[Rfam]
RNA sequence: GUUUUAUGAUGAUCCCAUGCGUGUCAGCUGAUCUCAGAAUUUACCAGGUGACUGACUGCUUACUGACGUUCUGUCAGUGAGUAAUGUUUGGUUACUGGAGGAUUCUGGGAACAUGAUCAUGCUCUUGGUUUCUGAAAAC
Numbered sequence: 001g002u003u004u005u006a007u008g009a010u011g012a013u014c015c016c017a018u019g020c021g022u023g024u025c026a027g028c029u030g031a032u033c034u035c036a037g038a039a040u041u042u043a044c045c046a047g048g049u050g051a052c053u054g055a056c057u058g059c060u061u062a063c064u065g066a067c068g069u070u071c072u073g074u075c076a077g078u079g080a081g082u083a084a085u086g087u088u089u090g091g092u093u094a095c096u097g098g099a100g101g102a103u104u105c106u107g108g109g110a111a112c113a114u115g116a117u118c119a120u121g122c123u124c125u126u127g128g129u130u131u132c133u134g135a136a137a138a139c
Stems, first nucleotide, its partner, number of pairs: 001139004042100001044098004050092001
This 139-nucleotide RNA from Scyliorhinus torazame belongs to the Rfam family "Small nucleolar RNA SNORD10". The source organism's lineage runs through Eukaryota, Eumetazoa, Bilateria, Galeomorphii and Scyliorhinus. The family's consensus secondary structure was predicted with WAR. A reference for the family is Huttenhofer et al. (2001), "RNomics: an experimental approach that identifies 201 candidates for novel, small, non-messenger RNAs in mouse", EMBO J. The family's RNA type in Rfam is C/D-box small nucleolar RNA.